[Rfam]
A member of the RNA family "Plastid-ccsA-ndhD-1 3UTR RNA" from Menispermum dauricum, 53 nucleotides long. The source organism's lineage runs through Eukaryota, Streptophyta, Mesangiospermae, Menispermeae and Menispermum. Rfam classes the family as a cis-regulatory element. The family has 488 seed sequences and 1,322 matches in Rfam 15.1. It is one of the family's seed sequences. Plastid-ccsA-ndhD-1 is a non-coding RNA (ncRNA) recognised in plastids. It was found in the three prime untranslated region (3UTR) of ccsA and ndhD genes, its 3UTR location suggests a role in transcript maturation. For this family Rfam cites "Retrograde signaling in plants: A critical review focusing on the GUN pathway and beyond" (Richter et al., Plant Commun, 2023). The family is grouped with related families in Rfam's "Plastid-ccsA_ndhD 3UTR RNA clan".
RNA sequence: UGAGAACCAUUUGAAUCACUACUUUGACUUGAUUCAAAUGGUUCUCAAAAACG
Numbered sequence: 001u002g003a004g005a006a007c008c009a010u011u012u013g014a015a016u017c018a019c020u021a022c023u024u025u026g027a028c029u030u031g032a033u034u035c036a037a038a039u040g041g042u043u044c045u046c047a048a049a050a051a052c053g
Stems, first nucleotide, its partner, number of pairs: 001047018